The family of this 82-nucleotide RNA from Leptidea sinapis is "mir-263 microRNA precursor family".

[Rfam]
RNA sequence: UCACGAUGAGUCUUGGCACUGGGAGAAUUCACAGGAGUUACAAUUUUACCCGUGAAUUUCCUGAUGCCUUAGCUUAUCGUGG
Numbered sequence: 001u002c003a004c005g006a007u008g009a010g011u012c013u014u015g016g017c018a019c020u021g022g023g024a025g026a027a028u029u030c031a032c033a034g035g036a037g038u039u040a041c042a043a044u045u046u047u048a049c050c051c052g053u054g055a056a057u058u059u060c061c062u063g064a065u066g067c068c069u070u071a072g073c074u075u076a077u078c079g080u081g082g
Base pairs, nucleotide, nucleotide: 003080004079005078006077007076008075009074010073015068016067017066018065020063021062022061023059025058026057029055030054031053032052034050

The match comes from Rfam's covariance-model search (62 bits). Pairs were carried over by alignment from the consensus structure, which was predicted with RNAalifold. Clan: mir-182 clan. NCBI's taxonomy places the organism under Eukaryota, Protostomia, Allotriocarida, Eumetabola, Leptidea.